Annotation: Shown here is a 171-nucleotide RNA from Candida albicans, a member of the family "Small nucleolar RNA snR80". By type it is an H/ACA-box small nucleolar RNA. The family has 6 seed sequences and 447 matches in Rfam 15.1. It scores 77 bits against the family's covariance model. On this family, see Schattner et al., Nucleic Acids Res 2004: "Genome-wide searching for pseudouridylation guide snoRNAs: analysis of the Saccharomyces cerevisiae genome".

[Rfam]
RNA sequence: CACUGUUUGCCAACACUCUGGUGCCAAAUCGCUAAUUGAUACAAUAUAUUUGUAACUUUCAGUGCCAUAUUUGGUUCCUAUUUUGGUGCAAACUAGAAUAAUCAGCUUACUACUCACCAUUGUACACCAAUAUCUUGAUGGGUACAUUAGGUCCAUUUUACUAGCUCACAU
Numbered sequence: 001c002a003c004u005g006u007u008u009g010c011c012a013a014c015a016c017u018c019u020g021g022u023g024c025c026a027a028a029u030c031g032c033u034a035a036u037u038g039a040u041a042c043a044a045u046a047u048a049u050u051u052g053u054a055a056c057u058u059u060c061a062g063u064g065c066c067a068u069a070u071u072u073g074g075u076u077c078c079u080a081u082u083u084u085g086g087u088g089c090a091a092a093c094u095a096g097a098a099u100a101a102u103c104a105g106c107u108u109a110c111u112a113c114u115c116a117c118c119a120u121u122g123u124a125c126a127c128c129a130a131u132a133u134c135u136u137g138a139u140g141g142g143u144a145c146a147u148u149a150g151g152u153c154c155a156u157u158u159u160a161c162u163a164g165c166u167c168a169c170a171u
Stems, first nucleotide, its partner, number of pairs: 007091003020078002023075002026072004035050001104166004117151002119148001122145003127141002